Description: 7SK RNA: a 296-nucleotide RNA from Leptobrachium leishanense. The family's consensus secondary structure is taken from published work. The source organism's lineage runs through Eukaryota, Metazoa, Pelobatoidea, Megophryidae and Leptobrachium.
[Rfam]
RNA sequence: GGAUGUGAGGGCGAUCUGACUGGGAUAUCUUUCAUCACAUUGAUUGAGUUAAUUUGGCUGAUUUGGCUAGUUAGGUGGCUGUCCCAUUCCUCCCUCACCGCUCCAUGUACAUUCCUCCCAAAGCUGUAUGUUUGGGGUGGCCUUCUCUGGUAGAGAAGCACCGAUCUUGUGUCCAGGCCAUACGAUUAGCUCUGCUCCCCUGCUAGUCCAAACAAGCACCAAGGACAUGCUGGGUAAGUCUGAAUCUGGGUAUACAUGUACAGUUGUGUUCAAAAUUAUUCAACCCCCAAUGCUGU
Numbered sequence: 001g002g003a004u005g006u007g008a009g010g011g012c013g014a015u016c017u018g019a020c021u022g023g024g025a026u027a028u029c030u031u032u033c034a035u036c037a038c039a040u041u042g043a044u045u046g047a048g049u050u051a052a053u054u055u056g057g058c059u060g061a062u063u064u065g066g067c068u069a070g071u072u073a074g075g076u077g078g079c080u081g082u083c084c085c086a087u088u089c090c091u092c093c094c095u096c097a098c099c100g101c102u103c104c105a106u107g108u109a110c111a112u113u114c115c116u117c118c119c120a121a122a123g124c125u126g127u128a129u130g131u132u133u134g135g136g137g138u139g140g141c142c143u144u145c146u147c148u149g150g151u152a153g154a155g156a157a158g159c160a161c162c163g164a165u166c167u168u169g170u171g172u173c174c175a176g177g178c179c180a181u182a183c184g185a186u187u188a189g190c191u192c193u194g195c196u197c198c199c200c201u202g203c204u205a206g207u208c209c210a211a212a213c214a215a216g217c218a219c220c221a222a223g224g225a226c227a228u229g230c231u232g233g234g235u236a237a238g239u240c241u242g243a244a245u246c247u248g249g250g251u252a253u254a255c256a257u258g259u260a261c262a263g264u265u266g267u268g269u270u271c272a273a274a275a276u277u278a279u280u281c282a283a284c285c286c287c288c289a290a291u292g293c294u295g296u
Stems, first nucleotide, its partner, number of pairs: 001104003005098007013089002024083004029078002032075002035070001038065002042063004046058001113158001115155003118135004123131002138149003189239003196236001198234003202230002260296003264290003268286001269283002272280002